[Rfam]
RNA: tRNA
RNA sequence: GCCCGGGUGGCGAAAUUGGUAGACGCAAGGGACUUAAAAUCCCUCGGUAUUUGAUACCGUGCCGGUUCGAUUCCGGCCCCGGGCA
Numbered sequence: 001g002c003c004c005g006g007g008u009g010g011c012g013a014a015a016u017u018g019g020u021a022g023a024c025g026c027a028a029g030g031g032a033c034u035u036a037a038a039a040u041c042c043c044u045c046g047g048u049a050u051u052u053g054a055u056a057c058c059g060u061g062c063c064g065g066u067u068c069g070a071u072u073c074c075g076g077c078c079c080c081g082g083g084c085a
Base pairs, nucleotide, nucleotide: 001084002083003082004081005080006079007078010026011025012024028044029043030042031041032040061077062076063075064074065073